[Rfam]
RNA: SAM/SAH riboswitch aptamer
RNA sequence: CGACCGUCACAACGGCUUCCUGGCGUGGCGGAAUUUCCCAACGGAGCA
Numbered sequence: 001c002g003a004c005c006g007u008c009a010c011a012a013c014g015g016c017u018u019c020c021u022g023g024c025g026u027g028g029c030g031g032a033a034u035u036u037c038c039c040a041a042c043g044g045a046g047c048a
Base pairs, nucleotide, nucleotide: 004031005030006029007028008027009026010025013022014021015047016046017045019044020043